[Rfam]
RNA sequence: UGUGUGUGGCGGGAUGGCAGUGUAUGUUAGCUGGUUGAAAUUCUGACAUCGGCUAACAUGCAGCUGCUGUCCUGCUCCACGUA
Numbered sequence: 001u002g003u004g005u006g007u008g009g010c011g012g013g014a015u016g017g018c019a020g021u022g023u024a025u026g027u028u029a030g031c032u033g034g035u036u037g038a039a040a041u042u043c044u045g046a047c048a049u050c051g052g053c054u055a056a057c058a059u060g061c062a063g064c065u066g067c068u069g070u071c072c073u074g075c076u077c078c079a080c081g082u083a
Base pairs, nucleotide, nucleotide: 001083002082003081004080005079006078008076009075010074011073012072013071015069016068017067018066019065020064021063022061023060024059026057027056028055029054030053031052032051033050034049035048
This 83-nucleotide RNA from Alectura lathami belongs to the Rfam family "mir-449 microRNA precursor family". On this family, see Linsen et al., BMC Genomics 2010: "Small RNA expression and strain specificity in the rat". The organism belongs to Alectura, within Eukaryota. It scores 61 bits against the family's covariance model. The family has 41 seed sequences and 325 matches in Rfam 15.1. The base pairs follow the family's consensus structure, which was predicted with RNAalifold.